[Rfam]
RNA sequence: GAGCCUUGCGGAGAUGGCAUGCCUCCCUUAACCGCCGGUCUGCGGAUGACGCGUCCGGCUGAUGAUGCCUACAAGUUC
Numbered sequence: 001g002a003g004c005c006u007u008g009c010g011g012a013g014a015u016g017g018c019a020u021g022c023c024u025c026c027c028u029u030a031a032c033c034g035c036c037g038g039u040c041u042g043c044g045g046a047u048g049a050c051g052c053g054u055c056c057g058g059c060u061g062a063u064g065a066u067g068c069c070u071a072c073a074a075g076u077u078c
Base pairs, nucleotide, nucleotide: 010026011025012024013023016069017068018067019066020065034059035058036057037056

Rfam assigns this 78-nucleotide RNA to the family "Fluoride riboswitch aptamer (crcB RNA motif)". It scores 49 bits against the family's covariance model.